[Rfam]
RNA sequence: GAUGUUGUUAAUAAUAAUAUCUUAGAAGAACAUGGUAUAUAACCUGAUGACUUUUCUAUUUCACUAAAAUUAGAUGAGGUGCUUGCACUAUUCACUGCACAGAGGCGUAAUCCUCCAAUAUGAAAAUAAAAAAAUAUAUAA
Number, nucleotide and partner (000 for none) at each position: 001g021002a020003u019004g018005u017006u016007g015008u014009u013010a000011a000012u000013a009014a008015u007016a006017a005018u004019a003020u002021c001022u000023u058024a057025g056026a055027a054028g053029a052030a000031c049032a048033u047034g044035g043036u042037a000038u000039a000040u000041a000042a036043c035044c034045u000046g000047a033048u032049g031050a000051c000052u029053u028054u027055u026056c025057u024058a023059u125060u124061u123062c122063a121064c000065u000066a000067a000068a000069a000070u000071u097072a096073g095074a000075u094076g093077a092078g089079g088080u087081g086082c000083u000084u000085g000086c081087a080088c079089u078090a000091u000092u077093c076094a075095c073096u072097g071098c000099a000100c000101a000102g115103a114104g113105g112106c000107g000108u000109a000110a000111u000112c105113c104114u103115c102116c000117a000118a000119u000120a000121u063122g062123a061124a060125a059126a000127u000128a000129a000130a000131a000132a000133a000134a000135u000136a000137u000138a000139u000140a000141a000
RNA: Manganese dependent ribozyme in Vg1 mRNA